A member of the RNA family "L17 ribosomal protein downstream element" from Pediococcus argentinicus, 63 nucleotides long. Lineage of the source: Bacteria > Bacillati > Bacillota > Lactobacillaceae > Pediococcus. Rfam classes the family as a cis-regulatory element.
RNA sequence: AGGGUGUUACGAUGAUGGAGAAAUCCGAGUCUAGCCCACGGUGAGUCGUUUAUUCGACUGACU
Numbered sequence: 001a002g003g004g005u006g007u008u009a010c011g012a013u014g015a016u017g018g019a020g021a022a023a024u025c026c027g028a029g030u031c032u033a034g035c036c037c038a039c040g041g042u043g044a045g046u047c048g049u050u051u052a053u054u055c056g057a058c059u060g061a062c063u
Base pairs, nucleotide, nucleotide: 002037003036004035005034011031012030013029017026018025019024040063041062042061044059045058046057047056